[Rfam]
RNA sequence: UAUAAAUACGCUCCUUUGGGCGUGUUGUUGGAUAAGCAUAAAGAAAAACUUUUUGUCGGGAAUUUCUUUAUGCUUUUAUUGUACCA
Numbered sequence: 001u002a003u004a005a006a007u008a009c010g011c012u013c014c015u016u017u018g019g020g021c022g023u024g025u026u027g028u029u030g031g032a033u034a035a036g037c038a039u040a041a042a043g044a045a046a047a048a049c050u051u052u053u054u055g056u057c058g059g060g061a062a063u064u065u066c067u068u069u070a071u072g073c074u075u076u077u078a079u080u081g082u083a084c085c086a
Base pairs, nucleotide, nucleotide: 005026006025007024008023009022010021011020012019013018034075035074036073037072038071039070040069041068042067043066044065045064046063